[Rfam]
RNA sequence: GAACUACUAGACGAAGUGAAUGGGUUGCGGCCGGUUCUUGUAACUUGGCCAGACCCAGGAAAGUCCCCGGGCCCUUAACUGCAGAGAUGCAGGCUCGGAAACGAGUAAAGCUUAAGGCCGUUAGGGUCUGUUCUUGCCAUUGGCAAGGCGGGGCUGAGACAAGUGUGGAGCCCUAAUGACCUUAAUGCCGAAGCAAUUUGGCCGAUACGCACAGUUAUUCACUUGGUCCCUAAGCUUGGACUAACUGAACGGGGCUUAUGAUCUAGUAGUU
Numbered sequence: 001g002a003a004c005u006a007c008u009a010g011a012c013g014a015a016g017u018g019a020a021u022g023g024g025u026u027g028c029g030g031c032c033g034g035u036u037c038u039u040g041u042a043a044c045u046u047g048g049c050c051a052g053a054c055c056c057a058g059g060a061a062a063g064u065c066c067c068c069g070g071g072c073c074c075u076u077a078a079c080u081g082c083a084g085a086g087a088u089g090c091a092g093g094c095u096c097g098g099a100a101a102c103g104a105g106u107a108a109a110g111c112u113u114a115a116g117g118c119c120g121u122u123a124g125g126g127u128c129u130g131u132u133c134u135u136g137c138c139a140u141u142g143g144c145a146a147g148g149c150g151g152g153g154c155u156g157a158g159a160c161a162a163g164u165g166u167g168g169a170g171c172c173c174u175a176a177u178g179a180c181c182u183u184a185a186u187g188c189c190g191a192a193g194c195a196a197u198u199u200g201g202c203c204g205a206u207a208c209g210c211a212c213a214g215u216u217a218u219u220c221a222c223u224u225g226g227u228c229c230c231u232a233a234g235c236u237u238g239g240a241c242u243a244a245c246u247g248a249a250c251g252g253g254g255c256u257u258a259u260g261a262u263c264u265a266g267u268a269g270u271u
Base pairs, nucleotide, nucleotide: 002271003270004269005268006267007266008265009264010263011262014224015223016222017221018220019219022056023055024054025053034044035043036042061257062256063255065254066253067252068251080091081090082089083088093106094105095104096103097102131195133193138187139186140185141184142183143182147181148180151173152172153171154170161166226241227240228239229238
Description
A member of the RNA family "RNase MRP" from Gossypium lobatum, 271 nucleotides long. Rfam 15.1 lists 3,510 matches to the family in 2,315 species. The family's consensus secondary structure is taken from published work. The family's RNA type in Rfam is ribozyme. Taxonomically the source falls in Gossypium (Eukaryota, Viridiplantae, Pentapetalae, Malvales).